The family of this 445-nucleotide part of an RNA from Rothia mucilaginosa is "Archaeal large subunit ribosomal RNA". The family's consensus secondary structure is taken from published work. Gene Ontology terms of the family: ribosome and structural constituent of ribosome. The match comes from Rfam's covariance-model search (1460 bits). Taxonomically the source falls in Rothia mucilaginosa (Bacteria, Actinomycetes, Micrococcales, Rothia). The family is grouped with related families in Rfam's "LSU clan".
[Rfam]
RNA sequence: CUCCCCGAAAUGCAUUUAGGUGCAGCGUUACGUGUUUCUUGCCGGAGGUAGAGCUACUGGAUGGCCGAUGGGCCUUCACGGGUUACUGACGUCAGCUAAACUCCGAAUGCCGGUAAGUGAGAGCGUAGCAGUGAGACAGUGGGGGAUAAGCUUCAUUGUCGAGAGGGAAACAGCCCAGACCACCAACUAAGGCCCCUAAGCGUGUGCUAAGUGGGAAAGGAUGUGGAGUUGCUUAGACAACCAGGAGGUUGGCUUAGAAGCAGCCAUCCUUGAAAGAGUGCGUAACAGCUCACUGGUCAAGUGAUUCUGCGCCGAUAAUGUAGCGGGGCUCAAGUACACCGCCGAAGUUGUGGCAAUGAUCUUUUUGGAUUGUUGGGUAGGGGAGCGUCGUGUGGCCGGUGAAGCUGCGGUGUAAACCAGUGGUGGAGGCUAUGCGAGUGAGAAU
Numbered sequence: 001c002u003c004c005c006c007g008a009a010a011u012g013c014a015u016u017u018a019g020g021u022g023c024a025g026c027g028u029u030a031c032g033u034g035u036u037u038c039u040u041g042c043c044g045g046a047g048g049u050a051g052a053g054c055u056a057c058u059g060g061a062u063g064g065c066c067g068a069u070g071g072g073c074c075u076u077c078a079c080g081g082g083u084u085a086c087u088g089a090c091g092u093c094a095g096c097u098a099a100a101c102u103c104c105g106a107a108u109g110c111c112g113g114u115a116a117g118u119g120a121g122a123g124c125g126u127a128g129c130a131g132u133g134a135g136a137c138a139g140u141g142g143g144g145g146a147u148a149a150g151c152u153u154c155a156u157u158g159u160c161g162a163g164a165g166g167g168a169a170a171c172a173g174c175c176c177a178g179a180c181c182a183c184c185a186a187c188u189a190a191g192g193c194c195c196c197u198a199a200g201c202g203u204g205u206g207c208u209a210a211g212u213g214g215g216a217a218a219g220g221a222u223g224u225g226g227a228g229u230u231g232c233u234u235a236g237a238c239a240a241c242c243a244g245g246a247g248g249u250u251g252g253c254u255u256a257g258a259a260g261c262a263g264c265c266a267u268c269c270u271u272g273a274a275a276g277a278g279u280g281c282g283u284a285a286c287a288g289c290u291c292a293c294u295g296g297u298c299a300a301g302u303g304a305u306u307c308u309g310c311g312c313c314g315a316u317a318a319u320g321u322a323g324c325g326g327g328g329c330u331c332a333a334g335u336a337c338a339c340c341g342c343c344g345a346a347g348u349u350g351u352g353g354c355a356a357u358g359a360u361c362u363u364u365u366u367g368g369a370u371u372g373u374u375g376g377g378u379a380g381g382g383g384a385g386c387g388u389c390g391u392g393u394g395g396c397c398g399g400u401g402a403a404g405c406u407g408c409g410g411u412g413u414a415a416a417c418c419a420g421u422g423g424u425g426g427a428g429g430c431u432a433u434g435c436g437a438g439u440g441a442g443a444a445u
Base pairs, nucleotide, nucleotide: 001385002384003383004382005381006380011024012023013022014021015020026131027129028128029127030126031125032124037117039116040115041114042113043112044111045110051104052102053101059097060096062094063093064092065091066088070086071084072083073082074081075080135160136159137158138157139156140155141154143153144152165176166175167174180353181352182351183350185349186348187347191343192342193341200340202339203338204337205336206335207334219313220312223310224309225308226307227306228305229304230303231302232301240297241296242295243294244293246270247269248268251265252264253263271275276291280289281288354375355374356373357372358371359370360369386440388437389436390435391434392433393432394431395430396429397428404424405423406422407421408420409418410417411416